The family of this 158-nucleotide RNA sequence from Glycine max is "MIR4371 microRNA precursor family". It scores 121 bits against the family's covariance model. NCBI's taxonomy places the organism under Eukaryota, eudicotyledons, Gunneridae, rosids, Glycine subgen. Soja. Its family is annotated with RISC complex and miRNA-mediated post-transcriptional gene silencing in the Gene Ontology. Rfam 15.1 lists 321 matches to the family in 4 species.
RNA sequence: CCAUUAAGUGAUGUCAUGACAAAUGGAGUAUCAUGUAAUCACGUCUUAUCAUUGACACCUUGUUGUCAUGUCAUUUCCUUCAUUGAAAUGACAAUAAGGUGUCAGUGAUUAGGCGUAAUGACGUGACACUCCAUCUGUCACAUCAUCACUUAACGAAA
Numbered sequence: 001c002c003a004u005u006a007a008g009u010g011a012u013g014u015c016a017u018g019a020c021a022a023a024u025g026g027a028g029u030a031u032c033a034u035g036u037a038a039u040c041a042c043g044u045c046u047u048a049u050c051a052u053u054g055a056c057a058c059c060u061u062g063u064u065g066u067c068a069u070g071u072c073a074u075u076u077c078c079u080u081c082a083u084u085g086a087a088a089u090g091a092c093a094a095u096a097a098g099g100u101g102u103c104a105g106u107g108a109u110u111a112g113g114c115g116u117a118a119u120g121a122c123g124u125g126a127c128a129c130u131c132c133a134u135c136u137g138u139c140a141c142a143u144c145a146u147c148a149c150u151u152a153a154c155g156a157a158a
Base pairs, nucleotide, nucleotide: 002155004153005152006151007150008149009148010147011146012145013144017140018139019138020137021136023134024133025132026131027130028129029128031126032125033124034123035122036121038119039118041116042115043114044113045112046111048109049108050107051106052105054103055102056101057100058099071086072085073084